[Rfam]
RNA sequence: CCGAUGCAUGCGGGAGAGACCAGCCCAGGCUGGCGCCGAAGGAGCAACCGCCCCGGAAACUCUCAGGCAAAAAGGACCGCGCGCAGACA
Numbered sequence: 001c002c003g004a005u006g007c008a009u010g011c012g013g014g015a016g017a018g019a020c021c022a023g024c025c026c027a028g029g030c031u032g033g034c035g036c037c038g039a040a041g042g043a044g045c046a047a048c049c050g051c052c053c054c055g056g057a058a059a060c061u062c063u064c065a066g067g068c069a070a071a072a073a074g075g076a077c078c079g080c081g082c083g084c085a086g087a088c089a
Base pairs, nucleotide, nucleotide: 006084007083009081010080011079012078013077020033021032022031023030035068036067037066038064039063042062043061044060048056049055